[Rfam]
RNA sequence: UGGGCUCCACGCGACUGGCGCGGUCAAGGUGGAUCACCACCGGGGAGCGAGCGAUGGUCCGGUCACCGCGCGCCUGGGUGACCGGG
Numbered sequence: 001u002g003g004g005c006u007c008c009a010c011g012c013g014a015c016u017g018g019c020g021c022g023g024u025c026a027a028g029g030u031g032g033a034u035c036a037c038c039a040c041c042g043g044g045g046a047g048c049g050a051g052c053g054a055u056g057g058u059c060c061g062g063u064c065a066c067c068g069c070g071c072g073c074c075u076g077g078g079u080g081a082c083c084g085g086g
Base pairs, nucleotide, nucleotide: 003055006053008051010049011048012047015044016043017074018073019072020071021070029040030039031038032037063081064080065079066078067077